[Rfam]
RNA sequence: UUGAAGGAUUUGGGAGAGACUGUUGAAAGAUUUUAGGAACAGCGCCGAAGGUGAAUCGCAAUAACUCUCAGGCAAAAGGACCAGAUCUGGACG
Numbered sequence: 001u002u003g004a005a006g007g008a009u010u011u012g013g014g015a016g017a018g019a020c021u022g023u024u025g026a027a028a029g030a031u032u033u034u035a036g037g038a039a040c041a042g043c044g045c046c047g048a049a050g051g052u053g054a055a056u057c058g059c060a061a062u063a064a065c066u067c068u069c070a071g072g073c074a075a076a077a078g079g080a081c082c083a084g085a086u087c088u089g090g091a092c093g
Stems, first nucleotide, its partner, number of pairs: 006088008020042004044073003047069002051067001053065001
Rfam assigns this 93-nucleotide RNA sequence from Anaerocolumna aminovalerica to the family "Glycine riboswitch aptamer". The organism belongs to Anaerocolumna, within Bacteria. The base pairs follow the family's consensus structure. The match comes from Rfam's covariance-model search (58 bits).